Alpha operon ribosome binding site: a 124-nucleotide RNA from Orbus hercynius. For this family Rfam cites "Translational repression of the Escherichia coli alpha operon mRNA: importance of an mRNA conformational switch and a ternary entrapment complex" (Schlax et al., J Biol Chem, 2001). About the family: The bacterial alpha operon ribosome binding site is surrounded by this complex pseudoknotted structure. Gene Ontology term of the family: ribosome binding. The match comes from Rfam's covariance-model search (86 bits).
[Rfam]
RNA sequence: UUGUGGUCCCUUUAUUUGAGUAUCCUGAAAACGGGCUUUUCGGUAUAGAGGUGACUUAAAUUAUAUUAAUAUUAACUAAUAGGAGUGCAUAGUGGCCCGUAUAGCAGGCAUUAACAUUCCUGAU
Dot-bracket structure: ....(.(.(((((..........[[[.....[[[[....{{{....))))).).)........................................]]]]......]]]............}}}.